[Rfam]
RNA sequence: UGAGUCCAAAACAACAAAAGCCCUACCUCUCUCUUGUCCUUGCGGCUCCGAUGACCGCGCCAGUGUGAAUCGGCAAACUUCAAAUUUC
Number, nucleotide and partner (000 for none) at each position: 001u000002g000003a000004g000005u000006c000007c000008a000009a000010a000011a000012c000013a000014a000015c000016a000017a000018a000019a000020g000021c000022c000023c000024u000025a000026c000027c000028u000029c000030u000031c000032u000033c000034u068035u067036g066037u000038c000039c063040u062041u059042g058043c057044g056045g055046c000047u053048c000049c000050g000051a000052u000053g047054a000055c045056c044057g043058c042059g041060c000061c000062a040063g039064u000065g000066u036067g035068a034069a000070u000071c000072g000073g000074c000075a000076a000077a000078c000079u000080u000081c000082a000083a000084a000085u000086u000087u000088c000

A member of the RNA family "BsrC" from Paenibacillus nuruki, 88 nucleotides long. Rfam 15.1 lists 572 matches to the family in 553 species. NCBI's taxonomy places the organism under Bacteria, Bacillota, Bacilli, Caryophanales, Paenibacillus. The family's consensus secondary structure was predicted with CMfinder. The 301 nucleotide sequence from Kouji Nakamura has been trimmed to a highly conserved ~85 nucleotide long core to form this family. The literature on the family includes a 2008 paper in Gene by Saito et al., "Novel small RNA-encoding genes in the intergenic regions of Bacillus subtilis". By type it is a small RNA.